[Rfam]
RNA: Archaeal large subunit ribosomal RNA, nucleotides 937 to 1390
Organism: candidate division MSBL1 archaeon SCGC-AAA261D19
RNA sequence: CCUCCCGAAGUUGGUCGCAGCCAACCCUGGCGUGAGGUAGCGUGCGGUGUAGAGCACUGAUUGGCGAGUGCGGAGGGAGACCUUCGGCUCCCCUGUCAAACUCCGAAGCCGUGUGCGCUGUAGACCGCCGGAGUAAGGGUGCGGGGGGUAAGCUCCCGCUCCGAGAAGGGAACAACCUAGACUGAGGUUAAGGCCCCUAAAUGCCGGCUAAGUUGUAAACGGAAAGGGAGUCUUUGUUCCGAGACAGCGGGGAGGUAGGCUUAGAAGCAGCCACCCUUUAAACAAAGCGUAACAGCUGACCCGUUGAGAGCGAAGGCCCCGAAAAUGGAAGGGGCUAAGCCGGCUGCCGAUACCUUGGGGCAGGUGAAGUUGAGUAGCCUGAUCUCGUAGGGAGGCGUUCGGCGAAGGUGGAAGUACGGCCGUGAGGUCGUAUGGACUUCGUUGAAAUGAAAAU
Numbered sequence: 001c002c003u004c005c006c007g008a009a010g011u012u013g014g015u016c017g018c019a020g021c022c023a024a025c026c027c028u029g030g031c032g033u034g035a036g037g038u039a040g041c042g043u044g045c046g047g048u049g050u051a052g053a054g055c056a057c058u059g060a061u062u063g064g065c066g067a068g069u070g071c072g073g074a075g076g077g078a079g080a081c082c083u084u085c086g087g088c089u090c091c092c093c094u095g096u097c098a099a100a101c102u103c104c105g106a107a108g109c110c111g112u113g114u115g116c117g118c119u120g121u122a123g124a125c126c127g128c129c130g131g132a133g134u135a136a137g138g139g140u141g142c143g144g145g146g147g148g149u150a151a152g153c154u155c156c157c158g159c160u161c162c163g164a165g166a167a168g169g170g171a172a173c174a175a176c177c178u179a180g181a182c183u184g185a186g187g188u189u190a191a192g193g194c195c196c197c198u199a200a201a202u203g204c205c206g207g208c209u210a211a212g213u214u215g216u217a218a219a220c221g222g223a224a225a226g227g228g229a230g231u232c233u234u235u236g237u238u239c240c241g242a243g244a245c246a247g248c249g250g251g252g253a254g255g256u257a258g259g260c261u262u263a264g265a266a267g268c269a270g271c272c273a274c275c276c277u278u279u280a281a282a283c284a285a286a287g288c289g290u291a292a293c294a295g296c297u298g299a300c301c302c303g304u305u306g307a308g309a310g311c312g313a314a315g316g317c318c319c320c321g322a323a324a325a326u327g328g329a330a331g332g333g334g335c336u337a338a339g340c341c342g343g344c345u346g347c348c349g350a351u352a353c354c355u356u357g358g359g360g361c362a363g364g365u366g367a368a369g370u371u372g373a374g375u376a377g378c379c380u381g382a383u384c385u386c387g388u389a390g391g392g393a394g395g396c397g398u399u400c401g402g403c404g405a406a407g408g409u410g411g412a413a414g415u416a417c418g419g420c421c422g423u424g425a426g427g428u429c430g431u432a433u434g435g436a437c438u439u440c441g442u443u444g445a446a447a448u449g450a451a452a453a454u
Stems, first nucleotide, its partner, number of pairs: 001395006011024005026133001027131006036119003040116008052104001053102002059097003063093002066090003071086006137162003141159006167178003182358007192348003201345001203344006226320003230317010247304005253277003258272003278282001283298001287296002359385002361381005396449001398446010414433008